This 65-nucleotide sequence from Halolamina pelagica belongs to the Rfam family "S15-Halobacteria ribosomal protein leader". Clan: Ribosomal Protein S15 Leader clan. The family's consensus secondary structure is taken from published work. A reference for the family is Eckert and Weinberg (2020), "Discovery of 20 novel ribosomal leader candidates in bacteria and archaea", BMC Microbiol. It is annotated as a cis-regulatory leader.
[Rfam]
RNA sequence: UUGGGAACAGCACGGCCGCAAAUCUGACUCGCUCGGACGGACCGAGCUUGGGAUUGCGGAAGUGU
Numbered sequence: 001u002u003g004g005g006a007a008c009a010g011c012a013c014g015g016c017c018g019c020a021a022a023u024c025u026g027a028c029u030c031g032c033u034c035g036g037a038c039g040g041a042c043c044g045a046g047c048u049u050g051g052g053a054u055u056g057c058g059g060a061a062g063u064g065u
Stems, first nucleotide, its partner, number of pairs: 010065004016059006024052002031047006